[Rfam]
RNA sequence: AUGAUAAUUGAAUAGGUUUUGCGUAUAAUUUGGGGAAUAUGGCCCAAGAGUUUCUACCAGACUGCCGUAAAUAGUCUGACUACGCGGGUAAAGUAAUCGCUU
Numbered sequence: 001a002u003g004a005u006a007a008u009u010g011a012a013u014a015g016g017u018u019u020u021g022c023g024u025a026u027a028a029u030u031u032g033g034g035g036a037a038u039a040u041g042g043c044c045c046a047a048g049a050g051u052u053u054c055u056a057c058c059a060g061a062c063u064g065c066c067g068u069a070a071a072u073a074g075u076c077u078g079a080c081u082a083c084g085c086g087g088g089u090a091a092a093g094u095a096a097u098c099g100c101u102u
Stems, first nucleotide, its partner, number of pairs: 018088008029049003033045003058078007
Background
This 102-nucleotide RNA sequence from Virgibacillus oceani belongs to the Rfam family "Purine riboswitch aptamer". The source organism's lineage runs through Bacteria, Bacillati, Bacilli, Caryophanales and Virgibacillus.